Rfam assigns this 104-nucleotide sequence from Geomicrobium sp. JCM 19038 to the family "SAM riboswitch aptamer (S box leader)". The match comes from Rfam's covariance-model search (95 bits). Taxonomically the source falls in Geomicrobium (Bacteria, Bacillati, Bacillota, Bacilli). Pairs were carried over by alignment from the consensus structure, which is taken from published work.
[Rfam]
RNA sequence: AUCUUAUGAAGAGAGGUAGAGGGACUGGCCCUAUGACACCUCAGCAACCCCACGUUAGUGGAAGGUGCUAAUUCCAUCAGAACGAUUGUUCUGAGAGAUAAGAA
Numbered sequence: 001a002u003c004u005u006a007u008g009a010a011g012a013g014a015g016g017u018a019g020a021g022g023g024a025c026u027g028g029c030c031c032u033a034u035g036a037c038a039c040c041u042c043a044g045c046a047a048c049c050c051c052a053c054g055u056u057a058g059u060g061g062a063a064g065g066u067g068c069u070a071a072u073u074c075c076a077u078c079a080g081a082a083c084g085a086u087u088g089u090u091c092u093g094a095g096a097g098a099u100a101a102g103a104a
Stems, first nucleotide, its partner, number of pairs: 002103006013042005021031003026076003043069004048065002050061004073096001078093006